The family of this 107-nucleotide sequence from Crystallibacter crystallopoietes is "Glycine riboswitch aptamer". This family represents the bacterial glycine riboswitch.
RNA sequence: GCAACUCUGGAAAGCAGUCGACCUUAACGGCUCGGCUCACCGACGGUGCAAGCGGAACUUGGAAAAGUUUCCGCGGAAUCUCUCAGGUCCAAUACAGAGCGGGGAGG
Numbered sequence: 001g002c003a004a005c006u007c008u009g010g011a012a013a014g015c016a017g018u019c020g021a022c023c024u025u026a027a028c029g030g031c032u033c034g035g036c037u038c039a040c041c042g043a044c045g046g047u048g049c050a051a052g053c054g055g056a057a058c059u060u061g062g063a064a065a066a067g068u069u070u071c072c073g074c075g076g077a078a079u080c081u082c083u084c085a086g087g088u089c090c091a092a093u094a095c096a097g098a099g100c101g102g103g104g105a106g107g
Stems, first nucleotide, its partner, number of pairs: 002102001005099005016037006039088003042084002046082001048080001053075002